Nucleotides: 083
Base pairs, nucleotide, nucleotide: 004025005024006023007022008021009020027042028041029040030039031038032037048075049074050073051072052071053070055068
Number, partner (000 for none) and nucleotide at each position: 001000u002000c003000c004025c005024c006023c007022g008021c009020u010000u011000c012000c013000c014000u015000c016000c017000c018000u019000g020009a021008g022007c023006g024005g025004g026000a027042g028041c029040c030039u031038u032037c033000c034000g035000a036000g037032g038031a039030a040029g041028g042027c043000g044000u045000u046000c047000g048075c049074c050073c051072c052071g053070g054000a055068c056000u057000g058000a059000u060000c061000c062000c063000c064000u065000c066000a067000g068055g069000c070053c071052c072051g073050g074049g075048g076000c077000u078000u079000u080000u081000c082000u083000u
This 83-nucleotide RNA from Pseudazoarcus pumilus belongs to the Rfam family "Burkholderia RNA 7 (anti-hemB)". It is annotated as a small RNA. This RNA motif was identified by computational search in b-proteobacteria Burkholderia. Co-purified with Hfq, expression confirmed by Northern blot. It scores 59 bits against the family's covariance model.